About this RNA: A member of the RNA family "FMN riboswitch aptamer (RFN element)" from Periweissella cryptocerci, 126 nucleotides long.
RNA sequence: AGUAAUCUUCAGGGCAGGGUGUAAAUCCCGACCGGUGGUUAAAGUCCGCGACCUCGAAAUUCGUUUCGAGCUGAUCUGGUGUAAUUCCAGAACCGACUGUUAAAGUCAGGUAUAUAGAAGAUUGGU
Dot-bracket structure: ..((((((((......(((.......))).[[((((((.....[[))))...((..............))....(((((.......)))))]])).(((.....]]))).......))))))))..
Numbered sequence: 001a002g003u004a005a006u007c008u009u010c011a012g013g014g015c016a017g018g019g020u021g022u023a024a025a026u027c028c029c030g031a032c033c034g035g036u037g038g039u040u041a042a043a044g045u046c047c048g049c050g051a052c053c054u055c056g057a058a059a060u061u062c063g064u065u066u067c068g069a070g071c072u073g074a075u076c077u078g079g080u081g082u083a084a085u086u087c088c089a090g091a092a093c094c095g096a097c098u099g100u101u102a103a104a105g106u107c108a109g110g111u112a113u114a115u116a117g118a119a120g121a122u123u124g125g126u
Stems, first nucleotide, its partner, number of pairs: 003124008017029003031106002033095002035049004044093002053070002075091005097109003